Shown here is a 110-nucleotide sequence from Aquilegia coerulea, a member of the family "Small nucleolar RNA snoR97".

RNA sequence: UUUGCUUAGUGAAGCCAUGUAGGCUGAAAUGACUCGGAGAGUUUUGUGUUGUUCAUCAGCUUCAUUUCUAGUACGCUGCAAAUUGGGAGUUAAAUGACAAUACUAUAUAU
Numbered sequence: 001u002u003u004g005c006u007u008a009g010u011g012a013a014g015c016c017a018u019g020u021a022g023g024c025u026g027a028a029a030u031g032a033c034u035c036g037g038a039g040a041g042u043u044u045u046g047u048g049u050u051g052u053u054c055a056u057c058a059g060c061u062u063c064a065u066u067u068c069u070a071g072u073a074c075g076c077u078g079c080a081a082a083u084u085g086g087g088a089g090u091u092a093a094a095u096g097a098c099a100a101u102a103c104u105a106u107a108u109a110u
Base pairs, nucleotide, nucleotide: 046103047102048101049100050099051098058091059090060089061088062087063086064083065082066081067080

The family has 7 seed sequences and 862 matches in Rfam 15.1.